[Rfam]
RNA: Small nucleolar RNA snoR74
RNA sequence: AAAAAAACAGGAUGCUGUGUUAUUUGAUAGCAGUAUCCCUGUAAACUUUAGGAACAUUGUGUUCAUCGUUAUUGGGUGAACCGUUGGUCCUGUCCAUGUGUUGGACAAUUCCAUGUCAAUUGGUUCCGUAAAUGAUGACACAUAG
Numbered sequence: 001a002a003a004a005a006a007a008c009a010g011g012a013u014g015c016u017g018u019g020u021u022a023u024u025u026g027a028u029a030g031c032a033g034u035a036u037c038c039c040u041g042u043a044a045a046c047u048u049u050a051g052g053a054a055c056a057u058u059g060u061g062u063u064c065a066u067c068g069u070u071a072u073u074g075g076g077u078g079a080a081c082c083g084u085u086g087g088u089c090c091u092g093u094c095c096a097u098g099u100g101u102u103g104g105a106c107a108a109u110u111c112c113a114u115g116u117c118a119a120u121u122g123g124u125u126c127c128g129u130a131a132a133u134g135a136u137g138a139c140a141c142a143u144a145g
Stems, first nucleotide, its partner, number of pairs: 005048002011037002014034004063138008078126006